[Rfam]
Shown here is a 185-nucleotide RNA from Feifania hominis, a member of the family "Lysine riboswitch aptamer".
RNA sequence: AAUAGAGAUAGAGGUCGCAGUUUUAAAGAGUAUCUCUUCGGGCUUACGGUUCCGCACCGCAGUAUGCCGGAGAGCGAAAGGUGAAAUUGCCGAAGGAGGAUUUGGUUGCGGAACAUCUCCCCCUGGUUAAACGGCUAAGAACCCUUUAACUGUCAUCCUUUUUGUGAUGGAGAGCUAUCUGUUGU
Numbered sequence: 001a002a003u004a005g006a007g008a009u010a011g012a013g014g015u016c017g018c019a020g021u022u023u024u025a026a027a028g029a030g031u032a033u034c035u036c037u038u039c040g041g042g043c044u045u046a047c048g049g050u051u052c053c054g055c056a057c058c059g060c061a062g063u064a065u066g067c068c069g070g071a072g073a074g075c076g077a078a079a080g081g082u083g084a085a086a087u088u089g090c091c092g093a094a095g096g097a098g099g100a101u102u103u104g105g106u107u108g109c110g111g112a113a114c115a116u117c118u119c120c121c122c123c124u125g126g127u128u129a130a131a132c133g134g135c136u137a138a139g140a141a142c143c144c145u146u147u148a149a150c151u152g153u154c155a156u157c158c159u160u161u162u163u164g165u166g167a168u169g170g171a172g173a174g175c176u177a178u179c180u181g182u183u184g185u
Stems, first nucleotide, its partner, number of pairs: 006180006017090009034074007094124003098120003103115002125151007133143002153170005159164001

Background:
The source organism's lineage runs through Bacteria, Bacillati, Bacillota, Feifaniaceae and Feifania.